[Rfam]
The record is a 169-nucleotide RNA sequence from Marvinbryantia formatexigens, which matches "Clostridiales-1 RNA" in Rfam. The base pairs follow the family's consensus structure, which is taken from published work. The family's RNA type in Rfam is small RNA.
RNA sequence: UGAUGCCAGGGGGAAAGGGUCCUGUCCCCGCAUGAGCUUGCUCAUAAGCGGGGGCUGGAUCCUGAAUCCCGCCCCGAUAUGAGCAUAAAAGUGGGAUGUAUAUCCCACGAUAUGCGAAUAGCGGGUCGGAUUUUGAAAGCGCGCAGCGCGGAAAAAUCCGAAGGCAUCA
Numbered sequence: 001u002g003a004u005g006c007c008a009g010g011g012g013g014a015a016a017g018g019g020u021c022c023u024g025u026c027c028c029c030g031c032a033u034g035a036g037c038u039u040g041c042u043c044a045u046a047a048g049c050g051g052g053g054g055c056u057g058g059a060u061c062c063u064g065a066a067u068c069c070c071g072c073c074c075c076g077a078u079a080u081g082a083g084c085a086u087a088a089a090a091g092u093g094g095g096a097u098g099u100a101u102a103u104c105c106c107a108c109g110a111u112a113u114g115c116g117a118a119u120a121g122c123g124g125g126u127c128g129g130a131u132u133u134u135g136a137a138a139g140c141g142c143g144c145a146g147c148g149c150g151g152a153a154a155a156a157u158c159c160g161a162a163g164g165c166a167u168c169a
Base pairs, nucleotide, nucleotide: 001169002168003167004166005165006164007163010069011068012067017062018061019060020059021058022057024055025054026053027052028051029050030049031048032045033044034043035042036041073125074124075123076122078120079119080118083115084114085113086112091108092107093106094105095104096103097102128159129158130157131156132155133154134153139149140148141147142146